This 63-nucleotide RNA from Echinostoma caproni belongs to the Rfam family "Selenocysteine insertion sequence 1". NCBI's taxonomy places the organism under Eukaryota, Opisthokonta, Digenea, Echinostomatoidea, Echinostoma. It is annotated as a cis-regulatory element. Rfam 15.1 lists 3,793 matches to the family in 721 species. Rfam describes the family as follows. The incorporation of selenocysteine into a protein sequence is directed by an in-frame UGA codon (usually a stop codon) within the coding region of the mRNA. Selenoprotein mRNAs contain a conserved secondary structure in the 3' UTR that is required for the distinction of UGA stop from UGA selenocysteine. The selenocysteine insertion sequence (SECIS) is around 60 nt in length and adopts a hairpin structure which is sufficiently well-defined and conserved to act as a computational screen for selenoprotein genes. The base pairs follow the family's consensus structure, which is taken from published work.

RNA sequence: UAGGCCCUAUGACGGCGUGCACUUAAACCCACGGGAGGUGCAUGCCCGAUGUUCCCCGGCGUC
Numbered sequence: 001u002a003g004g005c006c007c008u009a010u011g012a013c014g015g016c017g018u019g020c021a022c023u024u025a026a027a028c029c030c031a032c033g034g035g036a037g038g039u040g041c042a043u044g045c046c047c048g049a050u051g052u053u054c055c056c057c058g059g060c061g062u063c
Base pairs, nucleotide, nucleotide: 002062004060005059014046015045016044017043018042019041020040021039022038023037028035029034